[Rfam]
RNA: Small nucleolar RNA Z105
Organism: Rhododendron simsii
RNA sequence: GCAUAAUGAUGAUGAUGAUAUUAUUGUCAUCUGAAGUUUUAGUGAUUAAAACAAUAACCUCCUACUCAUUCUGA
Numbered sequence: 001g002c003a004u005a006a007u008g009a010u011g012a013u014g015a016u017g018a019u020a021u022u023a024u025u026g027u028c029a030u031c032u033g034a035a036g037u038u039u040u041a042g043u044g045a046u047u048a049a050a051a052c053a054a055u056a057a058c059c060u061c062c063u064a065c066u067c068a069u070u071c072u073g074a
Stems, first nucleotide, its partner, number of pairs: 006069004027050001031044001
Dot-bracket structure: .....((((.................(...(............).....)...............)))).....